[Rfam]
RNA sequence: GAGUCCUUUAAUACAGUCCCGUGAGGCUGAGAAGGAAACGGAUAUGUGCCUAGGGGAUGUUUCCCUUAUCUAUGCGCUCGUUACCCUCUCGCUGAAUCGGUGAGAGGGUUUUUUAU
Numbered sequence: 001g002a003g004u005c006c007u008u009u010a011a012u013a014c015a016g017u018c019c020c021g022u023g024a025g026g027c028u029g030a031g032a033a034g035g036a037a038a039c040g041g042a043u044a045u046g047u048g049c050c051u052a053g054g055g056g057a058u059g060u061u062u063c064c065c066u067u068a069u070c071u072a073u074g075c076g077c078u079c080g081u082u083a084c085c086c087u088c089u090c091g092c093u094g095a096a097u098c099g100g101u102g103a104g105a106g107g108g109u110u111u112u113u114u115a116u
Base pairs, nucleotide, nucleotide: 004036005035006034007033008032009031014029015028016027017026018025046077047076048075049074051072052071053070054069056067057066059064080112083109084108085107086106087105088104089103090102091101092100093099
RNA: PyrR binding site
Organism: Cytobacillus solani